[Rfam]
RNA sequence: CUACGGCCAAUUAAGCCACCGGGUUCCUUUCCUCAGGGGGGCCCAGUGUGAAAUGGCUGCAAACAGCAGCCUCCUUGGUAGUGUAAUGCAGCCUGUUUCUUGUAUGGGUUGCUCUAAGAGACCUUGGAGAUAGGC
Numbered sequence: 001c002u003a004c005g006g007c008c009a010a011u012u013a014a015g016c017c018a019c020c021g022g023g024u025u026c027c028u029u030u031c032c033u034c035a036g037g038g039g040g041g042c043c044c045a046g047u048g049u050g051a052a053a054u055g056g057c058u059g060c061a062a063a064c065a066g067c068a069g070c071c072u073c074c075u076u077g078g079u080a081g082u083g084u085a086a087u088g089c090a091g092c093c094u095g096u097u098u099c100u101u102g103u104a105u106g107g108g109u110u111g112c113u114c115u116a117a118g119a120g121a122c123c124u125u126g127g128a129g130a131u132a133g134g135c
Base pairs, nucleotide, nucleotide: 002052004050005049018047019046021044024041025040026039027038077123078122079121089111090110091109092108093107094106